[Rfam]
RNA sequence: CUUACUACUUUCUCUAAUUCGCUUGGUGCAGGUCGGGAAUGCCGGUUUGUUCUACAGACGAACUCUAUCCCGCCGUGCAUCAAGUGAAUCGGAGAUGGAAGUGAAG
Numbered sequence: 001c002u003u004a005c006u007a008c009u010u011u012c013u014c015u016a017a018u019u020c021g022c023u024u025g026g027u028g029c030a031g032g033u034c035g036g037g038a039a040u041g042c043c044g045g046u047u048u049g050u051u052c053u054a055c056a057g058a059c060g061a062a063c064u065c066u067a068u069c070c071c072g073c074c075g076u077g078c079a080u081c082a083a084g085u086g087a088a089u090c091g092g093a094g095a096u097g098g099a100a101g102u103g104a105a106g
Stems, first nucleotide, its partner, number of pairs: 013093002017089004023083008032074001034072005041065001